Shown here is a 229-nucleotide part of an RNA from Tripterygium wilfordii, a member of the family "Archaeal large subunit ribosomal RNA". Lineage of the source: Eukaryota > Euphyllophyta > Gunneridae > Celastrales > Tripterygium.
Nucleotides: 229
Base pairs, nucleotide, nucleotide: 006157007156008155009154010153011152012151015147016146017145018144020050022048023047024046025045026044051106052105053104054103055102059099060098061097067092068091069090070089071088072085073084074083075082076081108142109141110140115135116134117133118132119131168194169193170192171191222228
Number, partner (000 for none) and nucleotide at each position: 001000u002000g003000a004000c005000a006157g007156c008155g009154u010153c011152g012151c013000a014000a015147u016146a017145g018144u019000a020050a021000u022048u023047c024046a025045a026044c027000c028000u029000a030000g031000u032000a033000c034000g035000a036000g037000a038000g039000g040000a041000a042000c043000c044026g045025u046024u047023g048022a049000u050020u051106c052105g053104c054103a055102c056000a057000a058000u059099u060098g061097g062000u063000c064000a065000u066000c067092g068091c069090g070089c071088u072085u073084g074083g075082u076081u077000g078000a079000a080000a081076a082075g083074c084073c085072a086000g087000u088071g089070g090069c091068g092067c093000g094000a095000a096000g097061c098060u099059a100000c101000c102055g103054u104053g105052c106051g107000c108142u109141g110140g111000a112000u113000u114000a115135u116134g117133a118132c119131u120000g121000a122000a123000c124000g125000c126000c127000u128000c129000u130000a131119a132118g133117u134116c135115a136000g137000a138000a139000u140110c141109c142108g143000g144018g145017c146016u147015a148000g149000a150000a151012g152011c153010g154009a155008c156007g157006c158000g159000c160000g161000u162000g163000c164000c165000g166000c167000c168194g169193c170192c171191c172000g173000a174000u175000u176000g177000c178000c179000g180000a181000c182000c183000a184000g185000c186000a187000g188000u189000a190000g191171g192170g193169g194168c195000c196000u197000u198000u199000u200000g201000g202000c203000c204000c205000c206000c207000a208000a209000a210000g211000g212000c213000a214000c215000g216000u217000g218000c219000c220000g221000u222228u223000g224000g225000c226000u227000a228222a229000g